[Rfam]
RNA: Bacillaceae-1 RNA
RNA sequence: ACUCUUUGAAGUUCGAUUAAAACCGCUGCAUCACGCAGCAACAUCGAACCAACCUACGUCCUGUAGG
Numbered sequence: 001a002c003u004c005u006u007u008g009a010a011g012u013u014c015g016a017u018u019a020a021a022a023c024c025g026c027u028g029c030a031u032c033a034c035g036c037a038g039c040a041a042c043a044u045c046g047a048a049c050c051a052a053c054c055u056a057c058g059u060c061c062u063g064u065a066g067g
Base pairs, nucleotide, nucleotide: 011049012048013047014046015045016044017043025039026038027037028036029035053067054066055065056064057063